[Rfam]
Small nucleolar RNA SNORA33: a 128-nucleotide RNA from Erinaceus europaeus.
ACA33 is a member of the H/ACA class of snoRNA that guide the sites of modification of uridines to pseudouridines.

RNA sequence: AAGCCAGUCAGUGAAUCUGCUUACCUGAUUGUGUUUCUGCAGAAAUGUUUAUAACUGGUGACAGCAAUGCCAUGUUAGGAGCCUUAAUGACGUUGGGGUCUUUAAGGUCUCUGAAAGCGGCUAUAUGA
Numbered sequence: 001a002a003g004c005c006a007g008u009c010a011g012u013g014a015a016u017c018u019g020c021u022u023a024c025c026u027g028a029u030u031g032u033g034u035u036u037c038u039g040c041a042g043a044a045a046u047g048u049u050u051a052u053a054a055c056u057g058g059u060g061a062c063a064g065c066a067a068u069g070c071c072a073u074g075u076u077a078g079g080a081g082c083c084u085u086a087a088u089g090a091c092g093u094u095g096g097g098g099u100c101u102u103u104a105a106g107g108u109c110u111c112u113g114a115a116a117g118c119g120g121c122u123a124u125a126u127g128a
Base pairs, nucleotide, nucleotide: 003059004058005057006056007055016043017042018041019040020039069121070120071119081108082107083106084105085104086103087102089100090099091098
Taxonomically the source falls in Erinaceus (Eukaryota, Opisthokonta, Gnathostomata, Euteleostomi).
Rfam classes the family as an H/ACA-box small nucleolar RNA.